[Rfam]
Notes
Shown here is an 87-nucleotide RNA sequence from Gossypium aridum, a member of the family "MIR7486 microRNA precursor family". Rfam links the family to the GO terms miRNA-mediated post-transcriptional gene silencing and RISC complex. The source organism's lineage runs through Eukaryota, Viridiplantae, Streptophyta, Embryophyta and Gossypium. Pairs were carried over by alignment from the consensus structure, which was predicted with RNAalifold. It scores 83 bits against the family's covariance model.
RNA sequence: CACGUAAUCGCGAGAUACUUACGUGGAAGGAAAUCGCUCCCUCAAGGACGCGAUUUCUUUCCACGUAAGCAUCUCGUGAUUACGUGG
Number, nucleotide and partner (000 for none) at each position: 001c086002a085003c084004g083005u082006a081007a080008u079009c078010g077011c076012g075013a074014g073015a072016u071017a000018c069019u068020u067021a066022c000023g064024u063025g062026g061027a060028a059029g058030g057031a056032a055033a054034u053035c052036g051037c050038u000039c000040c047041c046042u000043c000044a000045a000046g041047g040048a000049c000050g037051c036052g035053a034054u033055u032056u031057c030058u029059u028060u027061c026062c025063a024064c023065g000066u021067a020068a019069g018070c000071a016072u015073c014074u013075c012076g011077u010078g009079a008080u007081u006082a005083c004084g003085u002086g001087g000